[Rfam]
RNA sequence: GAUGAUAUGAUGGGGGUCAUUUUAGAAGCGUGCUCGUCGCGACCCCUGCCAGCCCUUUCCAGGGCUGCAAUUAUACA
Numbered sequence: 001g002a003u004g005a006u007a008u009g010a011u012g013g014g015g016g017u018c019a020u021u022u023u024a025g026a027a028g029c030g031u032g033c034u035c036g037u038c039g040c041g042a043c044c045c046c047u048g049c050c051a052g053c054c055c056u057u058u059c060c061a062g063g064g065c066u067g068c069a070a071u072u073a074u075a076c077a
Base pairs, nucleotide, nucleotide: 013046014045015044016043017042018041021077023075024074026072027071028040029039030038050067051066052065053064054063055062056061

A member of the RNA family "Mammalian CPEB3 ribozyme" from Parnassius apollo, 77 nucleotides long. The match comes from Rfam's covariance-model search (54 bits). Lineage of the source: Eukaryota > Panorpida > Obtectomera > Parnassius > Parnassius. On this family, see Salehi-Ashtiani et al., Science 2006: "A genomewide search for ribozymes reveals an HDV-like sequence in the human CPEB3 gene". Pairs were carried over by alignment from the consensus structure, which is taken from published work.